[Rfam]
RNA sequence: CUAGAUUGAUAAGCGCCAGAGCUUCCGCCUGGGUCGCGCGAGUAUGGAGAUCAGCUAAUGGCACCCUUAUGGGGCAGCCACAGUGGCUGGAUUCCUAAUCGGCGGAGGGGAAGCUGACGAGGUGGAGGUGUUCGAGUUGUUCGGCGGGGGCCUCCCGGUAGAUUCAUCCGACCGUAAUUCGAAUAGCAAAAGGAAGGGGCGACCUUUCCCACAAACUAUUCGUUAGGAUGCUAA
Number, nucleotide and partner (000 for none) at each position: 001c000002u000003a000004g000005a000006u000007u000008g000009a000010u000011a000012a000013g000014c000015g000016c000017c000018a000019g000020a115021g114022c113023u112024u111025c110026c109027g000028c000029c000030u000031g000032g000033g000034u000035c000036g000037c000038g000039c000040g000041a000042g000043u000044a000045u000046g000047g000048a000049g000050a000051u000052c000053a000054g000055c000056u000057a000058a000059u000060g000061g000062c000063a000064c000065c000066c000067u000068u000069a000070u000071g000072g000073g000074g000075c000076a000077g000078c000079c000080a000081c000082a000083g000084u000085g000086g000087c000088u000089g000090g000091a000092u000093u000094c000095c000096u000097a000098a000099u000100c000101g000102g000103c000104g000105g000106a000107g000108g000109g026110g025111a024112a023113g022114c021115u020116g000117a000118c000119g000120a000121g000122g000123u000124g155125g154126a153127g152128g151129u000130g000131u000132u144133c143134g142135a141136g000137u000138u000139g000140u000141u135142c134143g133144g132145c000146g000147g000148g000149g000150g000151c128152c127153u126154c125155c124156c174157g173158g172159u171160a000161g169162a000163u000164u000165c000166a000167u000168c000169c161170g000171a159172c158173c157174g156175u000176a000177a000178u000179u000180c222181g221182a220183a219184u218185a000186g000187c000188a000189a000190a000191a000192g209193g208194a207195a206196g205197g204198g203199g000200c000201g000202a000203c198204c197205u196206u195207u194208c193209c192210c000211a000212c000213a000214a000215a000216c000217u000218a184219u183220u182221c181222g180223u000224u000225a000226g000227g000228a000229u000230g000231c000232u000233a000234a000
RNA: glmS glucosamine-6-phosphate activated ribozyme aptamer